Small nucleolar RNA SNORA57: a 140-nucleotide RNA sequence from Microcebus murinus. By type it is an H/ACA-box small nucleolar RNA. Rfam describes the family as follows. U99 belongs to the H/ACA class of snoRNAs which are thought to guide the sites of modification of uridines to pseudouridines, the target for this family is unknown. Rfam links the family to the GO terms RNA processing and nucleolus. The family's consensus secondary structure was predicted with PFOLD. Rfam's curators put it in the seed alignment. Taxonomically the source falls in Microcebus (Eukaryota, Dipnotetrapodomorpha, Lemuriformes, Cheirogaleidae).

RNA sequence: CCUCCUUUUCUUGGCGGGGACCGGGCGUGUGGUCCCGCUCCCCGUUAUGUACGGAGGCAGAGUGAAAGGGCUCCGGCGUCAUGUCUUCGGUGCCGGCGGCUUCACAUCCGCCGGUUCUAUCCUCAAGCGCCGGGACACUG
Numbered sequence: 001c002c003u004c005c006u007u008u009u010c011u012u013g014g015c016g017g018g019g020a021c022c023g024g025g026c027g028u029g030u031g032g033u034c035c036c037g038c039u040c041c042c043c044g045u046u047a048u049g050u051a052c053g054g055a056g057g058c059a060g061a062g063u064g065a066a067a068g069g070g071c072u073c074c075g076g077c078g079u080c081a082u083g084u085c086u087u088c089g090g091u092g093c094c095g096g097c098g099g100c101u102u103c104a105c106a107u108c109c110g111c112c113g114g115u116u117c118u119a120u121c122c123u124c125a126a127g128c129g130c131c132g133g134g135a136c137a138c139u140g
Base pairs, nucleotide, nucleotide: 001057002056003055004054005053015044016043017042018041019040020039022037023036024035025034074132075131076130077129078128079127093114094113095112096111097110098109099108